[Rfam]
RNA sequence: UCCCGAUAAAGGCAAAACUGAUGAAAAUCAGCGACGCAAAGCUUUAGGGGCUAAAGUGCAUUCAUGCAUGAUGCUUGCCAGCUACCGAA
Numbered sequence: 001u002c003c004c005g006a007u008a009a010a011g012g013c014a015a016a017a018c019u020g021a022u023g024a025a026a027a028u029c030a031g032c033g034a035c036g037c038a039a040a041g042c043u044u045u046a047g048g049g050g051c052u053a054a055a056g057u058g059c060a061u062u063c064a065u066g067c068a069u070g071a072u073g074c075u076u077g078c079c080a081g082c083u084a085c086c087g088a089a
Base pairs, nucleotide, nucleotide: 012037013036018031019030020029021028022027040083041082042081043080047079048078049075050074051073056069057068058067059066
RNA: c-di-GMP-I riboswitch aptamer